The record is a 91-nucleotide RNA sequence from Cnuibacter physcomitrellae, which matches "Glycine riboswitch aptamer" in Rfam. The base pairs follow the family's consensus structure. The source organism's lineage runs through Bacteria, Actinomycetota, Actinomycetes, Microbacteriaceae and Cnuibacter.

[Rfam]
RNA sequence: CGACCUGCCGCGGGAGAUCCUUCUCCCGAGAAGGUGCCGUAGGAGCAAACCCUCCCCGGGAAUCUCUCAGGCCCCACACCGCGGCGGCGAG
Numbered sequence: 001c002g003a004c005c006u007g008c009c010g011c012g013g014g015a016g017a018u019c020c021u022u023c024u025c026c027c028g029a030g031a032a033g034g035u036g037c038c039g040u041a042g043g044a045g046c047a048a049a050c051c052c053u054c055c056c057c058g059g060g061a062a063u064c065u066c067u068c069a070g071g072c073c074c075c076a077c078a079c080c081g082c083g084g085c086g087g088c089g090a091g
Base pairs, nucleotide, nucleotide: 006086007085008084009083010082011081012080013079019034020033021032022031036072037071038070039068043066044065045064050058